[Rfam]
RNA: BsrG
Organism: Pseudogracilibacillus auburnensis
RNA sequence: AUGUGUAAUAAGGCUUUCGUGGGUGGUGGCUCGCUUUCUUUCUAGUUUUACUAGAAGGGAGGUGAUGCCUAUGACAAUCUUUGAGUCAUUGAUGGUGAUGCUCGCUUUUGGAGCGCUUAUCGUGUCCUUAUUGUCAGAAAAUAGAAAAUAACCACCCUUCAGCCUGACAAGCGAUAUGGGUGAUUAUUUUUCUUGCUCAAAUCUGCGAGUCGCCCCCUUGAAGGGCUAUUACACGCUUGACCGUUCGUGUCGUUGCAUGAGCG
Numbered sequence: 001a002u003g004u005g006u007a008a009u010a011a012g013g014c015u016u017u018c019g020u021g022g023g024u025g026g027u028g029g030c031u032c033g034c035u036u037u038c039u040u041u042c043u044a045g046u047u048u049u050a051c052u053a054g055a056a057g058g059g060a061g062g063u064g065a066u067g068c069c070u071a072u073g074a075c076a077a078u079c080u081u082u083g084a085g086u087c088a089u090u091g092a093u094g095g096u097g098a099u100g101c102u103c104g105c106u107u108u109u110g111g112a113g114c115g116c117u118u119a120u121c122g123u124g125u126c127c128u129u130a131u132u133g134u135c136a137g138a139a140a141a142u143a144g145a146a147a148a149u150a151a152c153c154a155c156c157c158u159u160c161a162g163c164c165u166g167a168c169a170a171g172c173g174a175u176a177u178g179g180g181u182g183a184u185u186a187u188u189u190u191u192c193u194u195g196c197u198c199a200a201a202u203c204u205g206c207g208a209g210u211c212g213c214c215c216c217c218u219u220g221a222a223g224g225g226c227u228a229u230u231a232c233a234c235g236c237u238u239g240a241c242c243g244u245u246c247g248u249g250u251c252g253u254u255g256c257a258u259g260a261g262c263g
Stems, first nucleotide, its partner, number of pairs: 002235004007230004012211005018162001019159001021157003025152001027150001031065003035062007073135006087100002110127003173192002214225003242263009